[Rfam]
RNA sequence: CCAGAGGGCCGGGCGGCCGCGACUCCUGCUUGCAGGGGGCGAGGAAAGUCCGGGCUCCACGGAACAACGGUGCCGGGUAACGCCCGGCGGGCGGCGCAAGCGGCUCAGGGAAAGUGCCACAGAAAGCAUACCGCCCGUCCUUGGACGGGUAAGGUCGAAAGGGUGCGGCAAGAGCGCACCGCGCGGCUGGCAACAGGCGCGGCACGGUAAACCCCACUGGGUGCAAAACCGAAUAGGGGCGGCAGAUGGGCCUGUUCCGGCUCGCCGCCCGGGUUGGUUGCUUGAGGCGUGGGGCGACCCACGCCCUAGAGGAAUGGUCGCACAGGCAUCGCAAGAUGCUGGACAGAACCCGGCUUAUAGGCCCUCUGGCAUU
Numbered sequence: 001c002c003a004g005a006g007g008g009c010c011g012g013g014c015g016g017c018c019g020c021g022a023c024u025c026c027u028g029c030u031u032g033c034a035g036g037g038g039g040c041g042a043g044g045a046a047a048g049u050c051c052g053g054g055c056u057c058c059a060c061g062g063a064a065c066a067a068c069g070g071u072g073c074c075g076g077g078u079a080a081c082g083c084c085c086g087g088c089g090g091g092c093g094g095c096g097c098a099a100g101c102g103g104c105u106c107a108g109g110g111a112a113a114g115u116g117c118c119a120c121a122g123a124a125a126g127c128a129u130a131c132c133g134c135c136c137g138u139c140c141u142u143g144g145a146c147g148g149g150u151a152a153g154g155u156c157g158a159a160a161g162g163g164u165g166c167g168g169c170a171a172g173a174g175c176g177c178a179c180c181g182c183g184c185g186g187c188u189g190g191c192a193a194c195a196g197g198c199g200c201g202g203c204a205c206g207g208u209a210a211a212c213c214c215c216a217c218u219g220g221g222u223g224c225a226a227a228a229c230c231g232a233a234u235a236g237g238g239g240c241g242g243c244a245g246a247u248g249g250g251c252c253u254g255u256u257c258c259g260g261c262u263c264g265c266c267g268c269c270c271g272g273g274u275u276g277g278u279u280g281c282u283u284g285a286g287g288c289g290u291g292g293g294g295c296g297a298c299c300c301a302c303g304c305c306c307u308a309g310a311g312g313a314a315u316g317g318u319c320g321c322a323c324a325g326g327c328a329u330c331g332c333a334a335g336a337u338g339c340u341g342g343a344c345a346g347a348a349c350c351c352g353g354c355u356u357a358u359a360g361g362c363c364c365u366c367u368g369g370c371a372u373u
Stems, first nucleotide, its partner, number of pairs: 001369010011358001013321006020041002023038006046356003050353005055223001057221002064256001068219005073087005088108001089106004109214002114212002116208003131154002133150007162180006181203001182201004187196003227279004237270006248263005286305008
RNA: Bacterial RNase P class A
Organism: Sphingomonas piscis